[Rfam]
RNA: tRNA
RNA sequence: AACGUGUUAACUCAAUGGAUAGAGUAUUGUGCUACGGACACAAAAGUUACAAGUUCGAGUCUUGUACACGUUU
Number, nucleotide and partner (000 for none) at each position: 001a072002a071003c070004g069005u068006g067007u066008u000009a000010a025011c024012u023013c022014a000015a000016u000017g000018g000019a000020u000021a000022g013023a012024g011025u010026a000027u043028u042029g041030u040031g039032c000033u000034a000035c000036g000037g000038a000039c031040a030041c029042a028043a027044a000045a000046g000047u000048u000049a065050c064051a063052a062053g061054u000055u000056c000057g000058a000059g000060u000061c053062u052063u051064g050065u049066a007067c006068a005069c004070g003071u002072u001073u000